[Rfam]
RNA: T-box leader
Organism: Ruoffia halotolerans
RNA sequence: UAAAACGCUUUGAUGUGGAAAGUAAAUCAAUCAAACUUUUUAGAGAGCUCACGCUUGGUGAAAGUGAGUAAGUGACGAUCGGUUGAAAAUGGCUACUGAGCGGUCAUUCUGAAUGCGUAACGCAAUAAGGAUGAACGGAUGCACCCGUUAGAGAUGCCACAGUAUAUGGUUAUUGUAUUUUAAACACAUGUACUGGUAGAGGUUAUUUCAGUGAUGAAAUGACAAAUUAAGGUGGUAACACGAAGUUUAUACUCUCGUCCUUUUC
Number, nucleotide and partner (000 for none) at each position: 001u000002a000003a000004a000005a000006c000007g101008c100009u000010u000011u000012g000013a000014u000015g096016u095017g094018g093019a000020a000021a000022g000023u000024a000025a084026a083027u082028c081029a000030a079031u000032c000033a000034a000035a000036c072037u071038u070039u000040u000041u000042a000043g000044a000045g000046a000047g069048c068049u067050c066051a065052c064053g000054c000055u000056u000057g000058g000059u000060g000061a000062a000063a000064g052065u051066g050067a049068g048069u047070a038071a037072g036073u000074g000075a000076c000077g000078a000079u030080c000081g028082g027083u026084u025085g000086a000087a000088a000089a000090u000091g000092g000093c018094u017095a016096c015097u000098g000099a000100g008101c007102g000103g000104u134105c133106a132107u131108u130109c129110u128111g000112a000113a000114u000115g000116c000117g000118u000119a000120a000121c000122g000123c000124a000125a000126u000127a000128a110129g109130g108131a107132u106133g105134a104135a000136c147137g146138g145139a000140u000141g000142c000143a000144c000145c138146c137147g136148u000149u000150a000151g000152a000153g000154a000155u000156g000157c000158c000159a000160c000161a000162g000163u000164a000165u000166a000167u000168g000169g000170u000171u000172a000173u000174u000175g000176u000177a000178u000179u000180u000181u000182a000183a000184a000185c000186a000187c000188a000189u000190g000191u000192a000193c000194u000195g000196g000197u000198a000199g000200a000201g000202g223203u222204u221205a220206u219207u218208u217209c000210a000211g000212u000213g000214a000215u000216g000217a208218a207219a206220u205221g204222a203223c202224a000225a000226a000227u000228u000229a262230a261231g260232g259233u000234g000235g000236u000237a000238a000239c000240a258241c257242g256243a255244a000245g000246u000247u000248u000249a000250u000251a000252c000253u000254c000255u243256c242257g241258u240259c232260c231261u230262u229263u000264u000265c000